[Rfam]
Background
The family of this 87-nucleotide RNA from Isoptericola variabilis is "ZMP/ZTP riboswitch aptamer (pfl RNA motif)". The family's consensus secondary structure is taken from published work.
RNA sequence: GGCCCCGGCCGUGACUGGCGAGGGUGGACAACCACCGGGGAGCGGCCGACAGACCCACGAUGCGCGCCGCCCGCCUGGGUGCCAGGG
Numbered sequence: 001g002g003c004c005c006c007g008g009c010c011g012u013g014a015c016u017g018g019c020g021a022g023g024g025u026g027g028a029c030a031a032c033c034a035c036c037g038g039g040g041a042g043c044g045g046c047c048g049a050c051a052g053a054c055c056c057a058c059g060a061u062g063c064g065c066g067c068c069g070c071c072c073g074c075c076u077g078g079g080u081g082c083c084a085g086g087g
Stems, first nucleotide, its partner, number of pairs: 006048007015039002017075004024035004064082005